RNA sequence: GUACAAUGGAAAAGGCUCCUCAAGGGUGGUCUGGCUCAUCCCCUUAAGACAGGGGGUGAGUUAAUGACAGCAUUUGAAGCGUUAAUGCUGAUGCUAACUUUUGGCAUCUUAAUCGUUGCUAUGUUGUCGCAUGAGAGAAAGAUGUAGACCUCCCUUGAGCCUAGCCAAGCAGCGGGAGGUCUAUUCUUAUUUAGACAUAUGGGCCGGCCCCUUUAGAGACACCGUUGUACCUGACUGUGGGUGUUACCGCACCUACA
Numbered sequence: 001g002u003a004c005a006a007u008g009g010a011a012a013a014g015g016c017u018c019c020u021c022a023a024g025g026g027u028g029g030u031c032u033g034g035c036u037c038a039u040c041c042c043c044u045u046a047a048g049a050c051a052g053g054g055g056g057u058g059a060g061u062u063a064a065u066g067a068c069a070g071c072a073u074u075u076g077a078a079g080c081g082u083u084a085a086u087g088c089u090g091a092u093g094c095u096a097a098c099u100u101u102u103g104g105c106a107u108c109u110u111a112a113u114c115g116u117u118g119c120u121a122u123g124u125u126g127u128c129g130c131a132u133g134a135g136a137g138a139a140a141g142a143u144g145u146a147g148a149c150c151u152c153c154c155u156u157g158a159g160c161c162u163a164g165c166c167a168a169g170c171a172g173c174g175g176g177a178g179g180u181c182u183a184u185u186c187u188u189a190u191u192u193a194g195a196c197a198u199a200u201g202g203g204c205c206g207g208c209c210c211c212u213u214u215a216g217a218g219a220c221a222c223c224g225u226u227g228u229a230c231c232u233g234a235c236u237g238u239g240g241g242u243g244u245u246a247c248c249g250c251a252c253c254u255a256c257a
Base pairs, nucleotide, nucleotide: 001230002229003228004227005226007224008223009222014205015204016203017202018201019159020158021157022156023155024154025153026152029149030148031147032146036059037058038057040055041054042053043052044051066128067127068126069125070124071123072122079094080093081092103120104119105118106117167188168187169186208218210216236257237256238255239254240253241252242251243250244249